[Rfam]
RNA sequence: UUAUGUUUGUGGGUGGGUGGUGUUCAGCCCCAGCAAGGACAGGUGUGUUUACCUGUGUGUAGAUGGUUAUCAGCACCAGGGACAGGUACGUUUGUGU
Numbered sequence: 001u002u003a004u005g006u007u008u009g010u011g012g013g014u015g016g017g018u019g020g021u022g023u024u025c026a027g028c029c030c031c032a033g034c035a036a037g038g039a040c041a042g043g044u045g046u047g048u049u050u051a052c053c054u055g056u057g058u059g060u061a062g063a064u065g066g067u068u069a070u071c072a073g074c075a076c077c078a079g080g081g082a083c084a085g086g087u088a089c090g091u092u093u094g095u096g097u
Stems, first nucleotide, its partner, number of pairs: 004088007018078007026070001030066003037058001039056007
The family of this 97-nucleotide sequence from Branchiostoma belcheri is "mir-2060 microRNA precursor family". A search with the family's covariance model found it, with a score of 70 bits. Pairs were carried over by alignment from the consensus structure, which was predicted with RNAalifold.